[Rfam]
Description
This 85-nucleotide RNA sequence from Anaerocolumna aminovalerica belongs to the Rfam family "ZMP/ZTP riboswitch aptamer (pfl RNA motif)". Taxonomically the source falls in Anaerocolumna (Bacteria, Bacillota, Clostridia, Lachnospiraceae).
RNA sequence: GAUGAAUUGUAUGACUGGCGGAAAAUGAGAAUAAACUCACAGGGAGUACAAUGUUUAAAAUAUGCCGACCGCCUGGGCAGCCUAA
Numbered sequence: 001g002a003u004g005a006a007u008u009g010u011a012u013g014a015c016u017g018g019c020g021g022a023a024a025a026u027g028a029g030a031a032u033a034a035a036c037u038c039a040c041a042g043g044g045a046g047u048a049c050a051a052u053g054u055u056u057a058a059a060a061u062a063u064g065c066c067g068a069c070c071g072c073c074u075g076g077g078c079a080g081c082c083u084a085a
Base pairs, nucleotide, nucleotide: 004054006052007051008050009049010048011047012046015043016042017073018072019071020070021069026039027038028037029036063079064078065077066076